[Rfam]
RNA sequence: GAGCCUGUAGCUCAGUUGGUUAGAGCGCCAGGUUGUGGCCCUGGAGGCCGUGGGUUCAAAUCCCAUCAGGCUCC
Numbered sequence: 001g002a003g004c005c006u007g008u009a010g011c012u013c014a015g016u017u018g019g020u021u022a023g024a025g026c027g028c029c030a031g032g033u034u035g036u037g038g039c040c041c042u043g044g045a046g047g048c049c050g051u052g053g054g055u056u057c058a059a060a061u062c063c064c065a066u067c068a069g070g071c072u073c074c
Base pairs, nucleotide, nucleotide: 001073002072003071004070005069006068007067010026011025012024013023028044029043030042031041032040050066051065052064053063054062
The family of this 74-nucleotide RNA from Fodinibius roseus is "tRNA". Gene Ontology term of the family: triplet codon-amino acid adaptor activity. The family's consensus secondary structure is taken from published work. Taxonomically the source falls in Fodinibius (Bacteria, Balneolota, Balneolales, Balneolaceae). The family's RNA type in Rfam is transfer RNA.